[Rfam]
RNA sequence: UACUUAUCAAGAAAGAUAGAGGGACUGGGCCCUAUGAUGUCUUAGCAACCUGCGCUCCCCAUAGCAAGGUGCUAACUCCCAGCUCGAAGGUGUUCGGGAAUAGAUGAGUU
Numbered sequence: 001u002a003c004u005u006a007u008c009a010a011g012a013a014a015g016a017u018a019g020a021g022g023g024a025c026u027g028g029g030c031c032c033u034a035u036g037a038u039g040u041c042u043u044a045g046c047a048a049c050c051u052g053c054g055c056u057c058c059c060c061a062u063a064g065c066a067a068g069g070u071g072c073u074a075a076c077u078c079c080c081a082g083c084u085c086g087a088a089g090g091u092g093u094u095c096g097g098g099a100a101u102a103g104a105u106g107a108g109u110u
Stems, first nucleotide, its partner, number of pairs: 002109007013043005021032003026081004044073004049069002051066003077102001083098005
RNA: SAM riboswitch aptamer (S box leader)